[Rfam]
RNA sequence: UUAGCUCUCUUUGCCUAUUGGCUUAGAUCAAGUGUAGUAUCUGUUCUUUUCAGUUUAAUCUCUGAAAGUUUCCUCCGGGAAACAUUUUUGAUUAUUCUCAUUUUUGGAUCUCGCUCCUUGACCUCUGUGCUUGCACAUGUCUUGGGGCACAGUGUCACUGGGCUUACACUACCCCCGGUCGACGCAAACCCUU
Dot-bracket structure: .......(((..(((....)))..)))....................((((((........))))))((((((....)))))).............................(((((..(.....((((....))))...)..)))))...(((((((((((...........)))))).)))))........
RNA: U2 spliceosomal RNA